[Rfam]
RNA sequence: GUAGGGGAUGCCGAAAACCUCAAAGAGUAGGCA
Numbered sequence: 001g002u003a004g005g006g007g008a009u010g011c012c013g014a015a016a017a018c019c020u021c022a023a024a025g026a027g028u029a030g031g032c033a
Stems, first nucleotide, its partner, number of pairs: 003020003010032003
RNA: DUF805b RNA